[Rfam]
RNA sequence: CCACCCUUUAAAGACGGUCCCGUGAGGCCGGCAAGGGGAGGUAGUGCCAUUCGUGUGCGCAUGGGGCGCGAAACCUCUUUGCCGGCUUGGGCAAAGAGGUUUUUUUA
Numbered sequence: 001c002c003a004c005c006c007u008u009u010a011a012a013g014a015c016g017g018u019c020c021c022g023u024g025a026g027g028c029c030g031g032c033a034a035g036g037g038g039a040g041g042u043a044g045u046g047c048c049a050u051u052c053g054u055g056u057g058c059g060c061a062u063g064g065g066g067c068g069c070g071a072a073a074c075c076u077c078u079u080u081g082c083c084g085g086c087u088u089g090g091g092c093a094a095a096g097a098g099g100u101u102u103u104u105u106u107a
Base pairs, nucleotide, nucleotide: 004037005036006035007034008033015030016029017028018027019026045068046067047066048063049062050061052059053058071102072101073100074099075098076097077096078095079094080093081092082091083090
RNA: PyrR binding site
Organism: Polycladomyces abyssicola